[Rfam]
RNA: Small nucleolar RNA SNORD56
RNA sequence: CUGCAAUGAUGGGAAAAUUUUUCGUCAACAGCAGUUCACCUUGUGAGUGUUGAAUUUCUUAGUCUGAGCAA
Dot-bracket structure: .(((...((((...........)))).........................................))).